The family of this 100-nucleotide RNA sequence from Enterococcus phoeniculicola is "THF (Tetrahydrofolate) riboswitch aptamer".
RNA sequence: UUCAGAGUAGAAAACGAAGCGUUAAGUGCUAAAAGGAUGGGAUGUUGCCUUUUGGACGAAGAAUGGAUUCAUUCGCGGUUUUGUUUUCGCAUUCGCUGCA
Numbered sequence: 001u002u003c004a005g006a007g008u009a010g011a012a013a014a015c016g017a018a019g020c021g022u023u024a025a026g027u028g029c030u031a032a033a034a035g036g037a038u039g040g041g042a043u044g045u046u047g048c049c050u051u052u053u054g055g056a057c058g059a060a061g062a063a064u065g066g067a068u069u070c071a072u073u074c075g076c077g078g079u080u081u082u083g084u085u086u087u088c089g090c091a092u093u094c095g096c097u098g099c100a
Base pairs, nucleotide, nucleotide: 001100003098004097005096010088011087012086013085014084015083016082017081018080019079020077021076022075026057027056029055030054031053032052033051034050035049036048040094041093042092043091044090061074062073063072064071
Dot-bracket structure: (.(((....(((((((((((((...((.((((((((...[[[[[...))))))))))...((((......))))))).)))))))))).]]]]].))).)
The organism belongs to Enterococcus phoeniculicola, within Bacteria. Pairs were carried over by alignment from the consensus structure, which is taken from published work.